[Rfam]
RNA sequence: AAUUUGGAGUGUAAAAUCACGGUCCGGUCGGUAGUCCGGGCGCAUAAGGGCUUGCAAUAGCAGUGCCUUCUUGUCAGUAGCCUUCCCCCCUCGGGAUGUCCGUCACUCUAAUCUUUAUU
Numbered sequence: 001a002a003u004u005u006g007g008a009g010u011g012u013a014a015a016a017u018c019a020c021g022g023u024c025c026g027g028u029c030g031g032u033a034g035u036c037c038g039g040g041c042g043c044a045u046a047a048g049g050g051c052u053u054g055c056a057a058u059a060g061c062a063g064u065g066c067c068u069u070c071u072u073g074u075c076a077g078u079a080g081c082c083u084u085c086c087c088c089c090c091u092c093g094g095g096a097u098g099u100c101c102g103u104c105a106c107u108c109u110a111a112u113c114u115u116u117a118u119u
Base pairs, nucleotide, nucleotide: 004111005110006109007108008107009106010105011104022041023040024039025038026037027036042074043073044072084096085095086094087093
This 119-nucleotide RNA from Paenibacillus sp. FSL H7-0331 belongs to the Rfam family "azaaromatic riboswitch aptamer (yjdF RNA)". Pairs were carried over by alignment from the consensus structure, which is taken from published work. The match comes from Rfam's covariance-model search (74 bits).